Annotation:
Shown here is a 134-nucleotide RNA sequence from Salix dunnii, a member of the family "MIR480 microRNA precursor family". The base pairs follow the family's consensus structure, which was predicted with WAR. Its family is annotated with RISC complex and miRNA-mediated post-transcriptional gene silencing in the Gene Ontology.
RNA sequence: AAAUUUAUUUAGAGCAAUCCUUAUUUAGUCAUGAUAGACACAUCGAUAUCCAUUUAGAAUCAUCGGUUAUCUCCAACUAAGUUAUUGACAUUGAAAAACAAAGCAUAACAAUAAUAAAUUUUUGAGAUUUAAAU
Numbered sequence: 001a002a003a004u005u006u007a008u009u010u011a012g013a014g015c016a017a018u019c020c021u022u023a024u025u026u027a028g029u030c031a032u033g034a035u036a037g038a039c040a041c042a043u044c045g046a047u048a049u050c051c052a053u054u055u056a057g058a059a060u061c062a063u064c065g066g067u068u069a070u071c072u073c074c075a076a077c078u079a080a081g082u083u084a085u086u087g088a089c090a091u092u093g094a095a096a097a098a099c100a101a102a103g104c105a106u107a108a109c110a111a112u113a114a115u116a117a118a119u120u121u122u123u124g125a126g127a128u129u130u131a132a133a134u
Stems, first nucleotide, its partner, number of pairs: 004132002007129001008127002012123001014121001018116001022113003026108001028106002
For this family Rfam cites "Novel and mechanical stress-responsive MicroRNAs in Populus trichocarpa that are absent from Arabidopsis" (Lu et al., Plant Cell, 2005). It scores 73 bits against the family's covariance model. The source organism's lineage runs through Eukaryota, Embryophyta, Mesangiospermae, rosids and Salix.